[Rfam]
RNA sequence: UUAUAUGUGUAGACAUCCCCUCGUAUAAUAAUGGGAAUAUGGCCCAUGAGUUUCUACCCAAUUACCGUAAACAAUUGGACUAUGAGGGAAAGUGGUGCCGUU
Numbered sequence: 001u002u003a004u005a006u007g008u009g010u011a012g013a014c015a016u017c018c019c020c021u022c023g024u025a026u027a028a029u030a031a032u033g034g035g036a037a038u039a040u041g042g043c044c045c046a047u048g049a050g051u052u053u054c055u056a057c058c059c060a061a062u063u064a065c066c067g068u069a070a071a072c073a074a075u076u077g078g079a080c081u082a083u084g085a086g087g088g089a090a091a092g093u094g095g096u097g098c099c100g101u102u
Stems, first nucleotide, its partner, number of pairs: 018088008029049001031047005058078006